[Rfam]
RNA sequence: ACGUUUUAAAAAUAAUACUAAGUUUCUCAUCUGGCUGAGUUUCAGAGAUGACACCUUUCUCUUGGCUCUCUGAGCGU
Numbered sequence: 001a002c003g004u005u006u007u008a009a010a011a012a013u014a015a016u017a018c019u020a021a022g023u024u025u026c027u028c029a030u031c032u033g034g035c036u037g038a039g040u041u042u043c044a045g046a047g048a049u050g051a052c053a054c055c056u057u058u059c060u061c062u063u064g065g066c067u068c069u070c071u072g073a074g075c076g077u
Stems, first nucleotide, its partner, number of pairs: 001077004
A member of the RNA family "Small nucleolar RNA SNORD53/SNORD92" from Nannospalax galili, 77 nucleotides long. For this family Rfam cites "RNomics: an experimental approach that identifies 201 candidates for novel, small, non-messenger RNAs in mouse" (Huttenhofer et al., EMBO J, 2001). The pairing is the family consensus, mapped onto this sequence. Its family is annotated with RNA processing and nucleolus in the Gene Ontology. A search with the family's covariance model found it, with a score of 54 bits.